Notes:
This 108-nucleotide sequence from Ricinus communis belongs to the Rfam family "MIR403 microRNA precursor family". Pairs were carried over by alignment from the consensus structure, which was predicted with WAR. A reference for the family is Mica et al. (2009), "High throughput approaches reveal splicing of primary microRNA transcripts and tissue specific expression of mature microRNAs in Vitis vinifera", BMC Genomics.
[Rfam]
RNA sequence: ACGUAUCUCUAGUUUGUGCGUGAAUCGAGCCCCAUCAUCAAGGCCGUUCAUUUUGAGGCCCCACGAAUCCAAUGGUGUUAGAUUCACGCACAAACUCGUGAUCUGUCU
Numbered sequence: 001a002c003g004u005a006u007c008u009c010u011a012g013u014u015u016g017u018g019c020g021u022g023a024a025u026c027g028a029g030c031c032c033c034a035u036c037a038u039c040a041a042g043g044c045c046g047u048u049c050a051u052u053u054u055g056a057g058g059c060c061c062c063a064c065g066a067a068u069c070c071a072a073u074g075g076u077g078u079u080a081g082a083u084u085c086a087c088g089c090a091c092a093a094a095c096u097c098g099u100g101a102u103c104u105g106u107c108u
Stems, first nucleotide, its partner, number of pairs: 001106003005102003011096016028079003032075002038063001